[Rfam]
RNA sequence: CGCAAGGGCACUCUGUGUUAUACAUUCUUUGUGAUAAUUACAAUUUGUUACCUUGCUAGAGGAUUUCUAUCAACACCUAUUCCAAGCUGAUGUUAAUCGCUGUUUGGUCAUAGUGAUAGAUACAUUU
Dot-bracket structure: .((((((..((..((((((((((.......)).))))).)))....))..)))))).....((..((.(((.((.......((((((.(..........).)))))).....))))).)).....))
RNA: Small nucleolar RNA psi18S-841/snoR66
Organism: Arctia plantaginis